[Rfam]
Rfam assigns this 170-nucleotide RNA sequence from Medicago truncatula to the family "MIR2619 microRNA precursor family". A search with the family's covariance model found it, with a score of 141 bits. The family's consensus secondary structure was predicted with RNAalifold.
RNA sequence: AAACCGCCCCCUAAGUUUUGCAACUGUAGCAGUUUUGGCCCCCUAAGGCAAAAAAAAAAUAAAAAAAUAACACGUAGCGUCUCACUUAGGGUGCCACGUCAGCGUAGACUGAGUCAAAAUUGACCUUGGGGGCCAAAACUGUCACAGAUGCAAAACUUAGAGGGCAGUUU
Dot-bracket structure: ((.(.(((...(((((((((((.((((.(((((((((((((((.(..........................((.(.(((((........))))).).))..........................).))))))))))))))).)))).)))))))))))...))).).))
Numbered sequence: 001a002a003a004c005c006g007c008c009c010c011c012u013a014a015g016u017u018u019u020g021c022a023a024c025u026g027u028a029g030c031a032g033u034u035u036u037g038g039c040c041c042c043c044u045a046a047g048g049c050a051a052a053a054a055a056a057a058a059a060u061a062a063a064a065a066a067a068u069a070a071c072a073c074g075u076a077g078c079g080u081c082u083c084a085c086u087u088a089g090g091g092u093g094c095c096a097c098g099u100c101a102g103c104g105u106a107g108a109c110u111g112a113g114u115c116a117a118a119a120u121u122g123a124c125c126u127u128g129g130g131g132g133c134c135a136a137a138a139c140u141g142u143c144a145c146a147g148a149u150g151c152a153a154a155a156c157u158u159a160g161a162g163g164g165c166a167g168u169u170u
Stems, first nucleotide, its partner, number of pairs: 001170002004167001006165003012159011024147004029142015045126001072099002075096001077094005